[Rfam]
RNA sequence: UUUUGGUCGUGUCAAUGGGCUAAACACUGAAUAAUGUCUGGGUUGUAAGACAGAUUCAAACUUCUCCGUUGUUGCUAUAAUUUGGACUUGAAAACAACCUUUUUAAAUCUUGGACUCCACAUGAAAGUUGUAGGCCUAUGUCUUACCAAAU
Numbered sequence: 001u002u003u004u005g006g007u008c009g010u011g012u013c014a015a016u017g018g019g020c021u022a023a024a025c026a027c028u029g030a031a032u033a034a035u036g037u038c039u040g041g042g043u044u045g046u047a048a049g050a051c052a053g054a055u056u057c058a059a060a061c062u063u064c065u066c067c068g069u070u071g072u073u074g075c076u077a078u079a080a081u082u083u084g085g086a087c088u089u090g091a092a093a094a095c096a097a098c099c100u101u102u103u104u105a106a107a108u109c110u111u112g113g114a115c116u117c118c119a120c121a122u123g124a125a126a127g128u129u130g131u132a133g134g135c136c137u138a139u140g141u142c143u144u145a146c147c148a149a150a151u
Stems, first nucleotide, its partner, number of pairs: 002150006009144001011142001013140001015139005020133003024129001026128003034122003040118003044114001047111004053104002062096001071087003
This 151-nucleotide RNA from Populus tomentosa belongs to the Rfam family "MIR2912 microRNA precursor family". Its family is annotated with miRNA-mediated post-transcriptional gene silencing and RISC complex in the Gene Ontology. A search with the family's covariance model found it, with a score of 97 bits. Lineage of the source: Eukaryota > Streptophyta > Magnoliopsida > Mesangiospermae > Populus. Rfam 15.1 lists 15,051 matches to the family in 15 species.